Rfam assigns this 84-nucleotide RNA sequence from Piliocolobus tephrosceles to the family "mir-548 microRNA precursor family".
[Rfam]
RNA sequence: UAUUAACUUGGUGCAAAAGUAAUUGCGGUUUUUGCUGUUAAAAGUAACAACAAAAACCGCAAUUACUUUUGCACCAACCUAAUA
Numbered sequence: 001u002a003u004u005a006a007c008u009u010g011g012u013g014c015a016a017a018a019g020u021a022a023u024u025g026c027g028g029u030u031u032u033u034g035c036u037g038u039u040a041a042a043a044g045u046a047a048c049a050a051c052a053a054a055a056a057c058c059g060c061a062a063u064u065a066c067u068u069u070u071g072c073a074c075c076a077a078c079c080u081a082a083u084a
Stems, first nucleotide, its partner, number of pairs: 001084005008077027036049005

Rfam links the family to the GO terms miRNA-mediated post-transcriptional gene silencing and RISC complex. For this family Rfam cites "Ultra-high throughput sequencing-based small RNA discovery and discrete statistical biomarker analysis in a collection of cervical tumours and matched controls" (Witten et al., BMC Biol, 2010).